RNA sequence: AUGGCUUAAACUCAAUGAGUAAGGAAACUAAUGUCUUACCUGACAAGUAAGACUACCCAAUGGGUUAAGUGACCCAUUGGUUCUAAUUUGUGACGGAUAUGGAACGGCCGUUGGUUUAGGAACCACUACUUUCGGGUGACUAAUAAGGGGCCGGUCCCCGC
Numbered sequence: 001a002u003g004g005c006u007u008a009a010a011c012u013c014a015a016u017g018a019g020u021a022a023g024g025a026a027a028c029u030a031a032u033g034u035c036u037u038a039c040c041u042g043a044c045a046a047g048u049a050a051g052a053c054u055a056c057c058c059a060a061u062g063g064g065u066u067a068a069g070u071g072a073c074c075c076a077u078u079g080g081u082u083c084u085a086a087u088u089u090g091u092g093a094c095g096g097a098u099a100u101g102g103a104a105c106g107g108c109c110g111u112u113g114g115u116u117u118a119g120g121a122a123c124c125a126c127u128a129c130u131u132u133c134g135g136g137u138g139a140c141u142a143a144u145a146a147g148g149g150g151c152c153g154g155u156c157c158c159c160g161c
Stems, first nucleotide, its partner, number of pairs: 005023004033053007057080008100160003106156005112150001115145001116143004121137001123135002
RNA: U12 minor spliceosomal RNA
Organism: Hyaloperonospora arabidopsidis